[Rfam]
RNA sequence: UGCUUACCAGUGAUGUUGAAAUAAAAUGUCUGAAUAUAUGAAAUCCAUGUGAUAUCAAUGUUUCACUGAGGUAAGCU
Dot-bracket structure: .(((((((.............................................................))))))).
Source information:
A member of the RNA family "Small nucleolar RNA SNORD72" from Muraenolepis orangiensis, 77 nucleotides long. Taxonomically the source falls in Muraenolepis (Eukaryota, Bilateria, Teleostei, Ctenosquamata). A reference for the family is Huttenhofer et al. (2001), "RNomics: an experimental approach that identifies 201 candidates for novel, small, non-messenger RNAs in mouse", EMBO J. It is annotated as a C/D-box small nucleolar RNA. Rfam describes the family as follows. snoRNA HBII-240 belongs to the CD family of snoRNAs. It is the human orthologue of the mouse MBII-240 and is predicted to guide 2'O-ribose methylation of the large 28S rRNA at residue U4590.